let-7 microRNA precursor family: an 88-nucleotide sequence from Echeneis naucrates. The literature on the family includes a 2001 paper in Nat Rev Genet by Rougvie, "Control of developmental timing in animals". Rfam links the family to the GO terms miRNA-mediated post-transcriptional gene silencing and RISC complex. The family is grouped with related families in Rfam's "let-7 microRNA precursor clan". From the family's description: This family represents the microRNAs (miRNA) let-7 and mir-98. let-7 was identified from a study of developmental timing in C. elegans, and was later shown to be part of a much larger class of non-coding RNAs termed miRNAs. The organism belongs to Echeneis, within Eukaryota.
[Rfam]
RNA sequence: GCUGGCUGAGGUAGUAGUUUGUGCUGUUGGUCGGGUUGUCAUAUUACCCCUUUGUGGAGAUGACUGCGCAAUCUACUGCCUUGCUGGC
Numbered sequence: 001g002c003u004g005g006c007u008g009a010g011g012u013a014g015u016a017g018u019u020u021g022u023g024c025u026g027u028u029g030g031u032c033g034g035g036u037u038g039u040c041a042u043a044u045u046a047c048c049c050c051u052u053u054g055u056g057g058a059g060a061u062g063a064c065u066g067c068g069c070a071a072u073c074u075a076c077u078g079c080c081u082u083g084c085u086g087g088c
Stems, first nucleotide, its partner, number of pairs: 001088006008082010019071006026064002033050003052059002